A member of the RNA family "Mammalian CPEB3 ribozyme" from Alligator sinensis, 69 nucleotides long. It scores 40 bits against the family's covariance model.
RNA sequence: AAAGUUUGGGGCCAAAGCAGAAGUGCUCAGUGCGGCCGGUCUGAUUCCAACGAAUCUGCGAAUUCUGCU
Number, nucleotide and partner (000 for none) at each position: 001a000002a000003a000004g000005u000006u000007u000008g000009g000010g037011g036012c035013c034014a000015a000016a069017g068018c067019a066020g065021a064022a063023g033024u032025g031026c000027u000028c000029a000030g000031u025032g024033c023034g013035g012036c011037c010038g000039g000040u000041c058042u000043g056044a055045u054046u053047c052048c000049a000050a000051c000052g047053a046054a045055u044056c043057u000058g041059c000060g000061a000062a000063u022064u021065c020066u019067g018068c017069u016
Taxonomically the source falls in Alligator (Eukaryota, Euteleostomi, Sarcopterygii, Alligatorinae).